[Rfam]
RNA: mir-568 microRNA precursor family
Organism: Chrysochloris asiatica
RNA sequence: AUAUACACUAUAUAAUGUAUAAAUGUAUACACACUUCCUAUAUAUAUAUCCAUAUAUAUAGUGUAUAUAUUAUACAUGUAUAUGUGUGUAUAG
Numbered sequence: 001a002u003a004u005a006c007a008c009u010a011u012a013u014a015a016u017g018u019a020u021a022a023a024u025g026u027a028u029a030c031a032c033a034c035u036u037c038c039u040a041u042a043u044a045u046a047u048a049u050c051c052a053u054a055u056a057u058a059u060a061g062u063g064u065a066u067a068u069a070u071u072a073u074a075c076a077u078g079u080a081u082a083u084g085u086g087u088g089u090a091u092a093g
Stems, first nucleotide, its partner, number of pairs: 003087004009082005015077008024069009039056005